RNA sequence: GCGGAGGGCCGGAUGGCCGCACCUUUCGGGGUGAGGAAAGUCCGGACUCCAGGAGACGACGGUGCCGGGUAACGCCCGGGCGGGGCAACCCGACGGAAAGCGCCACAGAAAAGAGACCGCCACGGCUCCGGCCGCGGCAAGGGUGAAACGGUGGGGUAAGAGCCCACCGCGGGGCUGGCAACAGCGCCGGCAAGGCAAGCCCCACCGGGAGCAAUGCCGAAUAGGGGUUCCACGGGCUUGUCCCAGAGCUGUCUGCGCUCAGGAACCCGGGUAGGCAGCUAGAUCCGGCCGGCAACGGCCGGGGCAGAGGAAUGGUCAUCGAACCGCCGUCAGGCGGGGAACAAAAUCCGGCUUACAGGCCCUCCGCGCAU
Numbered sequence: 001g002c003g004g005a006g007g008g009c010c011g012g013a014u015g016g017c018c019g020c021a022c023c024u025u026u027c028g029g030g031g032u033g034a035g036g037a038a039a040g041u042c043c044g045g046a047c048u049c050c051a052g053g054a055g056a057c058g059a060c061g062g063u064g065c066c067g068g069g070u071a072a073c074g075c076c077c078g079g080g081c082g083g084g085g086c087a088a089c090c091c092g093a094c095g096g097a098a099a100g101c102g103c104c105a106c107a108g109a110a111a112a113g114a115g116a117c118c119g120c121c122a123c124g125g126c127u128c129c130g131g132c133c134g135c136g137g138c139a140a141g142g143g144u145g146a147a148a149c150g151g152u153g154g155g156g157u158a159a160g161a162g163c164c165c166a167c168c169g170c171g172g173g174g175c176u177g178g179c180a181a182c183a184g185c186g187c188c189g190g191c192a193a194g195g196c197a198a199g200c201c202c203c204a205c206c207g208g209g210a211g212c213a214a215u216g217c218c219g220a221a222u223a224g225g226g227g228u229u230c231c232a233c234g235g236g237c238u239u240g241u242c243c244c245a246g247a248g249c250u251g252u253c254u255g256c257g258c259u260c261a262g263g264a265a266c267c268c269g270g271g272u273a274g275g276c277a278g279c280u281a282g283a284u285c286c287g288g289c290c291g292g293c294a295a296c297g298g299c300c301g302g303g304g305c306a307g308a309g310g311a312a313u314g315g316u317c318a319u320c321g322a323a324c325c326g327c328c329g330u331c332a333g334g335c336g337g338g339g340a341a342c343a344a345a346a347u348c349c350g351g352c353u354u355a356c357a358g359g360c361c362c363u364c365c366g367c368g369c370a371u
Base pairs, nucleotide, nucleotide: 001367002366003365004364005363006362007361008360009359010358011356012320013319014318015317016316017315018314020033021032022031023030024029038354039353040352042351043350044349045348046347047211048210049209050208056254058252060207061206062205063204064203065079066078067077068076069075080094081092082091083090084089095202096201100200101199102196103195104194117142118141119138120137121136123134124133125132126131150168151167152166153165154164155163169191170189171188172187174185175184176183177182215277216276217275218274225268226267227266228265229264230263246260247259248258249257284303285302286301287300288299289298290297291296
Bacterial RNase P class A: a 371-nucleotide RNA from Profundibacterium mesophilum.
The organism belongs to Profundibacterium mesophilum, within Bacteria.
Rfam classes the family as a ribozyme.
Gene Ontology terms of the family: dimeric ribonuclease P complex, ribonuclease P activity and tRNA processing.